[Rfam]
RNA sequence: CAGGCAUGGUGAUGAUGAAUUUACUUAUUUUACUGAUAGUUCUUGAUUGAAAUGAAACCUUCUACUCAUUCUGA
Numbered sequence: 001c002a003g004g005c006a007u008g009g010u011g012a013u014g015a016u017g018a019a020u021u022u023a024c025u026u027a028u029u030u031u032a033c034u035g036a037u038a039g040u041u042c043u044u045g046a047u048u049g050a051a052a053u054g055a056a057a058c059c060u061u062c063u064a065c066u067c068a069u070u071c072u073g074a
Base pairs, nucleotide, nucleotide: 006069007068008067009066029051030050033045